Shown here is a 90-nucleotide sequence from Sinimarinibacterium sp. NLF-5-8, a member of the family "Glycine riboswitch aptamer". A search with the family's covariance model found it, with a score of 60 bits. This family represents the bacterial glycine riboswitch. A reference for the family is Mandal et al. (2004), "A glycine-dependent riboswitch that uses cooperative binding to control gene expression", Science. Pairs were carried over by alignment from the consensus structure.
[Rfam]
RNA sequence: AACCUUGUCAUGCGAGAGACUGCCUUUGAUGGCAGCACCGAAGGCGCAAACCGCCCGGAAUCGCUCAGGUAAAAGGAGUGUGACAAGGUC
Numbered sequence: 001a002a003c004c005u006u007g008u009c010a011u012g013c014g015a016g017a018g019a020c021u022g023c024c025u026u027u028g029a030u031g032g033c034a035g036c037a038c039c040g041a042a043g044g045c046g047c048a049a050a051c052c053g054c055c056c057g058g059a060a061u062c063g064c065u066c067a068g069g070u071a072a073a074a075g076g077a078g079u080g081u082g083a084c085a086a087g088g089u090c
Stems, first nucleotide, its partner, number of pairs: 006085008020035004037070003040066002044064003051057001